[Rfam]
RNA sequence: UUAGAAAGGGCAACAGGUGGAUGCCUUGGCGCCAGAAAGCGAUGAAAGACGUGGUAGGCUGCGAUAAGUCUCGGGGAGGGGCCAAACACCCUAUGAGCCGGGAAUUUCUGAAUGGGGCAACCCGGCCGGAGUCAUGUCCGGUCAUCCGCAACUGAACAAAUAGGUUGCAGGAAGCGAACCCGGGGAAGUGAAACAUCUCAGUACCCGGAGGAAAGGAAAUCAAGCGAGACUCCCAAAGUAGCGGCGAGCGAAAUGGGACUAGCCCAAACCGGUUGGUUUCGACCAGCCGGGGUUGUAGGACCCCAACGUGGGAUUGACUACUAGGCAGGAGAAGAGAGCUGGAAAGCUCCGCCAUAGCAGGUGAUAGCCCUGUAUCCGAACCCGAACGUCACUCUAGGGGCACCUGAGUACCGCGGGGCACGUGAAACCCCGUGGGAAUCUGGGAGGACCAUCUUCCAAGGCUAAGUAUUCGCUGGCGACCGAUAGUGCACCAGUACCGUGAGGGAAAGGUGAAAAGAACCCCUGUCAGGGGAGUGAAAUAGAACCUGAAACCUGUUGCCUACAAG
Numbered sequence: 001u002u003a004g005a006a007a008g009g010g011c012a013a014c015a016g017g018u019g020g021a022u023g024c025c026u027u028g029g030c031g032c033c034a035g036a037a038a039g040c041g042a043u044g045a046a047a048g049a050c051g052u053g054g055u056a057g058g059c060u061g062c063g064a065u066a067a068g069u070c071u072c073g074g075g076g077a078g079g080g081g082c083c084a085a086a087c088a089c090c091c092u093a094u095g096a097g098c099c100g101g102g103a104a105u106u107u108c109u110g111a112a113u114g115g116g117g118c119a120a121c122c123c124g125g126c127c128g129g130a131g132u133c134a135u136g137u138c139c140g141g142u143c144a145u146c147c148g149c150a151a152c153u154g155a156a157c158a159a160a161u162a163g164g165u166u167g168c169a170g171g172a173a174g175c176g177a178a179c180c181c182g183g184g185g186a187a188g189u190g191a192a193a194c195a196u197c198u199c200a201g202u203a204c205c206c207g208g209a210g211g212a213a214a215g216g217a218a219a220u221c222a223a224g225c226g227a228g229a230c231u232c233c234c235a236a237a238g239u240a241g242c243g244g245c246g247a248g249c250g251a252a253a254u255g256g257g258a259c260u261a262g263c264c265c266a267a268a269c270c271g272g273u274u275g276g277u278u279u280c281g282a283c284c285a286g287c288c289g290g291g292g293u294u295g296u297a298g299g300a301c302c303c304c305a306a307c308g309u310g311g312g313a314u315u316g317a318c319u320a321c322u323a324g325g326c327a328g329g330a331g332a333a334g335a336g337a338g339c340u341g342g343a344a345a346g347c348u349c350c351g352c353c354a355u356a357g358c359a360g361g362u363g364a365u366a367g368c369c370c371u372g373u374a375u376c377c378g379a380a381c382c383c384g385a386a387c388g389u390c391a392c393u394c395u396a397g398g399g400g401c402a403c404c405u406g407a408g409u410a411c412c413g414c415g416g417g418g419c420a421c422g423u424g425a426a427a428c429c430c431c432g433u434g435g436g437a438a439u440c441u442g443g444g445a446g447g448a449c450c451a452u453c454u455u456c457c458a459a460g461g462c463u464a465a466g467u468a469u470u471c472g473c474u475g476g477c478g479a480c481c482g483a484u485a486g487u488g489c490a491c492c493a494g495u496a497c498c499g500u501g502a503g504g505g506a507a508a509g510g511u512g513a514a515a516a517g518a519a520c521c522c523c524u525g526u527c528a529g530g531g532g533a534g535u536g537a538a539a540u541a542g543a544a545c546c547u548g549a550a551a552c553c554u555g556u557u558g559c560c561u562a563c564a565a566g
Stems, first nucleotide, its partner, number of pairs: 008561010023546001024510002028481002030478006037470002039175002047109003050063003069103006078091003114123003124143007145172003148168006179210001180208005190197002220227002230466001231258005241249002261463004269290007297405003301400004313393001315391004322384001324382002328377003334350001336349004353357001359371003411435008442457005497504002520532004
RNA: Bacterial large subunit ribosomal RNA, nucleotides 8 to 573
Organism: Nitratidesulfovibrio vulgaris